[Rfam]
RNA sequence: UCUAGAACUCGAGAUAUGGGCUAAACACUAAACAAUAUCUGGGUCGUAGGACAGAUUCAAACUUCUCCGUUGUUGCUAUAAUUAGGACUUGAAAACGGCCUUUUUAAAUCUCAGACUCUCAUGAAAGUUUUAGGCCUAUGUCUUAGCUUUCCAUC
Numbered sequence: 001u002c003u004a005g006a007a008c009u010c011g012a013g014a015u016a017u018g019g020g021c022u023a024a025a026c027a028c029u030a031a032a033c034a035a036u037a038u039c040u041g042g043g044u045c046g047u048a049g050g051a052c053a054g055a056u057u058c059a060a061a062c063u064u065c066u067c068c069g070u071u072g073u074u075g076c077u078a079u080a081a082u083u084a085g086g087a088c089u090u091g092a093a094a095a096c097g098g099c100c101u102u103u104u105u106a107a108a109u110c111u112c113a114g115a116c117u118c119u120c121a122u123g124a125a126a127g128u129u130u131u132a133g134g135c136c137u138a139u140g141u142c143u144u145a146g147c148u149u150u151c152c153a154u155c
Stems, first nucleotide, its partner, number of pairs: 003153001005151003008146002011144010021133005027128003035122002041118003045114001049111003054105002062098002072088003

Rfam assigns this 155-nucleotide RNA sequence from Populus deltoides to the family "MIR2912 microRNA precursor family". The match comes from Rfam's covariance-model search (116 bits).